[Rfam]
Nucleotides: 105
Base pairs, nucleotide, nucleotide: 007099008098011095012094013093014092016090017089018088025082026081027080028079029078030077031076032075033074
Number, partner (000 for none) and nucleotide at each position: 001000g002000u003000g004000c005000a006000c007099c008098c009000c010000a011095a012094a013093g014092g015000a016090g017089u018088g019000u020000g021000c022000c023000u024000a025082a026081g027080a028079a029078c030077a031076c032075a033074g034000g035000u036000g037000u038000a039000u040000u041000u042000u043000g044000g045000u046000c047000u048000u049000c050000u051000c052000c053000u054000g055000u056000u057000u058000u059000g060000g061000a062000c063000c064000c065000a066000a067000a068000a069000u070000a071000u072000g073000c074033u075032u076031g077030u078029g079028u080027u081026c082025u083000c084000a085000g086000g087000u088018c089017a090016c091000c092014c093013c094012u095011u096000u097000g098008g099007g100000a101000u102000c103000a104000c105000c
Description
The family of this 105-nucleotide sequence from Solanum commersonii is "MIR398 microRNA precursor family". The base pairs follow the family's consensus structure, which was predicted with WAR. On this family, see Jones-Rhoades and Bartel, Mol Cell 2004: "Computational identification of plant microRNAs and their targets, including a stress-induced miRNA". Rfam links the family to the GO terms RISC complex and miRNA-mediated post-transcriptional gene silencing.